[Rfam]
Notes
The family of this 73-nucleotide RNA sequence from Cavia porcellus is "Small nucleolar RNA SNORD63". The family has 23 seed sequences and 795 matches in Rfam 15.1. Lineage of the source: Eukaryota > Craniata > Eutheria > Euarchontoglires > Cavia. About the family: snoRNA U63 is found in both humans and mice. A reference for the family is Galardi et al. (2002), "Purified box C/D snoRNPs are able to reproduce site-specific 2'-O-methylation of target RNA in vitro", Mol Cell Biol. It is annotated as a C/D-box small nucleolar RNA.

RNA sequence: GUGCAGUGAUGCAUUUUAUUCAACACAUCAUUCUCAAAGUACAGAAGUGUGGAAAACUUAAUGACUGAGCACA
Number, nucleotide and partner (000 for none) at each position: 001g072002u071003g070004c069005a000006g000007u000008g000009a000010u000011g000012c000013a000014u000015u000016u000017u000018a000019u000020u000021c000022a000023a000024c000025a000026c000027a000028u000029c000030a000031u000032u000033c000034u000035c000036a000037a000038a000039g000040u000041a000042c000043a000044g000045a000046a000047g000048u000049g000050u000051g000052g000053a000054a000055a000056a000057c000058u000059u000060a000061a000062u000063g000064a000065c000066u000067g000068a000069g004070c003071a002072c001073a000